[Rfam]
RNA sequence: CGCUGAGUUCGGACCGCUCGGGGUCCGGAGCCGGGGAACCAACCACUCUGGGGUGAGUCCCGCACGAGGCGCGAAGGGCGGGGUCCGACCGGACCGCGCCGGUCGCGAGGAGUGCGGGUAGGGCGAGUCGUGCCCGAACCCGUCAGCUCACCCGGUAGGCGUA
Numbered sequence: 001c002g003c004u005g006a007g008u009u010c011g012g013a014c015c016g017c018u019c020g021g022g023g024u025c026c027g028g029a030g031c032c033g034g035g036g037a038a039c040c041a042a043c044c045a046c047u048c049u050g051g052g053g054u055g056a057g058u059c060c061c062g063c064a065c066g067a068g069g070c071g072c073g074a075a076g077g078g079c080g081g082g083g084u085c086c087g088a089c090c091g092g093a094c095c096g097c098g099c100c101g102g103u104c105g106c107g108a109g110g111a112g113u114g115c116g117g118g119u120a121g122g123g124c125g126a127g128u129c130g131u132g133c134c135c136g137a138a139c140c141c142g143u144c145a146g147c148u149c150a151c152c153c154g155g156u157a158g159g160c161g162u163a
Stems, first nucleotide, its partner, number of pairs: 001161004008029008030156006040050002051141003059118007121135004
RNA: c-di-AMP riboswitch aptamer (ydaO/yuaA leader)